Shown here is a 35-nucleotide RNA sequence from Fukomys damarensis, a member of the family "Iron response element I". Taxonomically the source falls in Fukomys (Eukaryota, Boreoeutheria, Glires, Hystricomorpha).

RNA sequence: CUGACUCUUGUUUCAACAGUGUUUGGAUGGAGUAG
Dot-bracket structure: (((.((((.(.((((((...).)))))))))))))
Numbered sequence: 001c002u003g004a005c006u007c008u009u010g011u012u013u014c015a016a017c018a019g020u021g022u023u024u025g026g027a028u029g030g031a032g033u034a035g
Stems, first nucleotide, its partner, number of pairs: 001035003005032004010028001012027005017021001
For this family Rfam cites "Identification of the iron-responsive element for the translational regulation of human ferritin mRNA" (Hentze et al., Science, 1987).
The family's consensus secondary structure is taken from published work.